The family of this 141-nucleotide RNA from Orrella dioscoreae is "SAH (S-adenosyl-L-homocysteine) riboswitch aptamer".
Taxonomically the source falls in Orrella (Bacteria, Betaproteobacteria, Burkholderiales, Alcaligenaceae).
A search with the family's covariance model found it, with a score of 51 bits.
The base pairs follow the family's consensus structure, which is taken from published work.

[Rfam]
RNA sequence: CUUCCUGAGGAGCGUUGCGACGGGUCGCGCGUUGUCCGCUAGGGGGCGCAUCCCUCCAGCCGGACCCCACCCGCCAGGCUCAGGAACUUCCUCUUUCCAGCCGCUUGCCCGUGCAAGCGGCUAGAACGGCGCUCGCCAACC
Number, nucleotide and partner (000 for none) at each position: 001c000002u086003u085004c084005c083006u082007g081008a080009g000010g000011a000012g000013c000014g000015u000016u000017g000018c000019g000020a000021c073022g072023g071024g070025u069026c000027g000028c000029g000030c000031g000032u000033u000034g000035u000036c000037c000038g000039c000040u000041a000042g000043g000044g000045g000046g000047c000048g000049c000050a000051u000052c000053c000054c000055u000056c000057c000058a000059g000060c000061c000062g000063g000064a000065c000066c000067c000068c000069a025070c024071c023072c022073g021074c000075c000076a000077g000078g000079c000080u008081c007082a006083g005084g004085a003086a002087c000088u000089u000090c000091c000092u000093c000094u000095u000096u000097c000098c000099a000100g000101c000102c000103g000104c000105u000106u000107g000108c000109c000110c000111g000112u000113g000114c000115a000116a000117g000118c000119g000120g000121c000122u000123a000124g000125a000126a000127c000128g000129g000130c000131g000132c000133u000134c000135g000136c000137c000138a000139a000140c000141c000